About this RNA:
The family of this 120-nucleotide RNA from Pseudoxanthomonas wuyuanensis is "Group II catalytic intron D1-D4-2". A search with the family's covariance model found it, with a score of 109 bits. On this family, see Bonen and Vogel, Trends Genet 2001: "The ins and outs of group II introns". The base pairs follow the family's consensus structure.

[Rfam]
RNA sequence: GGGAGUCGGUCUCCCGAAGUCGGCGUACAGGCGUUGGCUUCAAACCGCUGCGGUGCUGCUGCGCUAAAGAGGCGUGGUGGUGAGCGACUGUAGAAAAGGCGUUCAAAGAGAACGUCAGGU
Dot-bracket structure: (((((.....)))))((((((.((((....)))).))))))....(.((.((((((.(((.((((.....)))).))).)).....)))).))....((((((.......))))))..).
The source organism's lineage runs through Bacteria, Pseudomonadati, Gammaproteobacteria, Lysobacterales and Pseudoxanthomonas. Rfam's curators write: Group II introns are found in rRNA, tRNA and mRNA of organelles in fungi, plants and protists, and also in mRNA in bacteria. Gene Ontology term of the family: Group II intron splicing.